[Rfam]
Nucleotides: 082
Stems, first nucleotide, its partner, number of pairs: 008075006021036003039062003042058002046056003
Number, partner (000 for none) and nucleotide at each position: 001000g002000g003000a004000g005000c006000a007000g008075c009074u010073u011072c012071u013070g014000g015000a016000g017000a018000g019000a020000a021036u022035g023034c024000a025000c026000g027000u028000u029000a030000u031000u032000g033000u034023g035022c036021a037000a038000c039062g040061c041060c042058g043057a044000a045000g046056g047055g048054u049000u050000c051000a052000u053000a054048a055047u056046c057043u058042c059000a060041g061040g062039c063000a064000a065000a066000a067000g068000g069000a070013c071012a072011g073010a074009a075008g076000a077000g078000g079000u080000a081000c082000a
The family of this 82-nucleotide RNA sequence from Thalassobacillus cyri is "Glycine riboswitch aptamer". The base pairs follow the family's consensus structure. Rfam's curators write: This family represents the bacterial glycine riboswitch. Glycine riboswitches usually consist of two metabolite-binding aptamers domains with similar structures in tandem. The aptamers cooperatively bind glycine to regulate the expression of downstream genes. In Bacillus subtilis, this riboswitch is found upstream of the gcvT operon which controls glycine degradation. A search with the family's covariance model found it, with a score of 46 bits.